[Rfam]
RNA sequence: GGGUGGUGGGAAGUGUAACACUCGCAGUGACGCACCGGUUUGAUCAAUGACCGUAUUCAUUUCAAAUGAAGCAAAGGCUGUGAGCGAAAGUCCCUGAACCCGAGGCUGAGAGAGCUCCAUCCGUAGCCUGGGUGUACUCGGAUAUCCAACCUGGAUGGCGUUUGGGCCAGGAGACCGUGAAUGGUUGAGCCUAGGAUGGCCAUCGGUUGAACUCCGGGGUUCGUUGCAAGCAAAGUGACGUUACACUAGUAAAGAACAGCACAGGGCUUACUCUCCCCUUAUC
Numbered sequence: 001g002g003g004u005g006g007u008g009g010g011a012a013g014u015g016u017a018a019c020a021c022u023c024g025c026a027g028u029g030a031c032g033c034a035c036c037g038g039u040u041u042g043a044u045c046a047a048u049g050a051c052c053g054u055a056u057u058c059a060u061u062u063c064a065a066a067u068g069a070a071g072c073a074a075a076g077g078c079u080g081u082g083a084g085c086g087a088a089a090g091u092c093c094c095u096g097a098a099c100c101c102g103a104g105g106c107u108g109a110g111a112g113a114g115c116u117c118c119a120u121c122c123g124u125a126g127c128c129u130g131g132g133u134g135u136a137c138u139c140g141g142a143u144a145u146c147c148a149a150c151c152u153g154g155a156u157g158g159c160g161u162u163u164g165g166g167c168c169a170g171g172a173g174a175c176c177g178u179g180a181a182u183g184g185u186u187g188a189g190c191c192u193a194g195g196a197u198g199g200c201c202a203u204c205g206g207u208u209g210a211a212c213u214c215c216g217g218g219g220u221u222c223g224u225u226g227c228a229a230g231c232a233a234a235g236u237g238a239c240g241u242u243a244c245a246c247u248a249g250u251a252a253a254g255a256a257c258a259g260c261a262c263a264g265g266g267c268u269u270a271c272u273c274u275c276c277c278c279u280u281a282u283c
Stems, first nucleotide, its partner, number of pairs: 002283005008277004014245006022084001023082006037067001039065002042062002088269003092266004104116004118134005137218003147209005156202004164192004174185004
Dot-bracket structure: .(((((.((((..((((((..(((((((........(.((.((.................)).)).).........)))))).)...[[[.[[[[........((((.....)))).(((((.......)))))..(((.......(((((....((((....((((......((((....))))...))))......))))..)))))......))).....................)))))).................]]]]]]]....)))).)))))
RNase MRP: a 283-nucleotide RNA sequence from Onchocerca volvulus. Its Rfam clan is "RNaseP clan". It is annotated as a ribozyme. The family's consensus secondary structure is taken from published work. A search with the family's covariance model found it, with a score of 77 bits. Rfam links the family to the GO terms ribonuclease MRP complex, rRNA processing and ribonuclease MRP activity.